[Rfam]
RNA sequence: AGCGAUGCGUACGGUUCCCCCCAAUCUACGCAUCGCUAGGCGGCACCUGUUCCCCCCAAUAGGUGCCGCCCCCU
Numbered sequence: 001a002g003c004g005a006u007g008c009g010u011a012c013g014g015u016u017c018c019c020c021c022c023a024a025u026c027u028a029c030g031c032a033u034c035g036c037u038a039g040g041c042g043g044c045a046c047c048u049g050u051u052c053c054c055c056c057c058a059a060u061a062g063g064u065g066c067c068g069c070c071c072c073c074u
Stems, first nucleotide, its partner, number of pairs: 001037011039070012
Dot-bracket structure: (((((((((((...............))))))))))).((((((((((((........))))))))))))....
RNA: 6C RNA